Shown here is a 132-nucleotide sequence from Gossypium raimondii, a member of the family "MIR7502 microRNA precursor family".
Gene Ontology terms of the family: RISC complex and miRNA-mediated post-transcriptional gene silencing.
It scores 76 bits against the family's covariance model.
The base pairs follow the family's consensus structure, which was predicted with RNAalifold.
Rfam 15.1 lists 74,505 matches to the family in 24 species.
RNA sequence: UGUUAAAAAUUUCAUCCAUUUUUAUUGUUAGAAAUUGGUCCCUACAUGUGAGCAUAAGAUACAUGUGACAUGCCAAGCAUCACUAUUUGGUUACGCCAUUUUUUAACAAUAUAAAAUGAUGAUUUUUUAACA
Numbered sequence: 001u002g003u004u005a006a007a008a009a010u011u012u013c014a015u016c017c018a019u020u021u022u023u024a025u026u027g028u029u030a031g032a033a034a035u036u037g038g039u040c041c042c043u044a045c046a047u048g049u050g051a052g053c054a055u056a057a058g059a060u061a062c063a064u065g066u067g068a069c070a071u072g073c074c075a076a077g078c079a080u081c082a083c084u085a086u087u088u089g090g091u092u093a094c095g096c097c098a099u100u101u102u103u104u105a106a107c108a109a110u111a112u113a114a115a116a117u118g119a120u121g122a123u124u125u126u127u128u129a130a131c132a
Stems, first nucleotide, its partner, number of pairs: 002131008012122005019115003023111004028106006